[Rfam]
RNA: mir-130 microRNA precursor family
Organism: Strigamia maritima
RNA sequence: UCCAAAUGAUACUUCUUCUAACAUUGCUGCACUGUUUGCAACAAUGCAGCAAUGUUAGAAGAAGUAUCAUUUGCA
Numbered sequence: 001u002c003c004a005a006a007u008g009a010u011a012c013u014u015c016u017u018c019u020a021a022c023a024u025u026g027c028u029g030c031a032c033u034g035u036u037u038g039c040a041a042c043a044a045u046g047c048a049g050c051a052a053u054g055u056u057a058g059a060a061g062a063a064g065u066a067u068c069a070u071u072u073g074c075a
Base pairs, nucleotide, nucleotide: 001075003073005071006070007069008068009067010066012064013063014062015061016060017059018058019057022054023053024052025051026050027049028048029047030046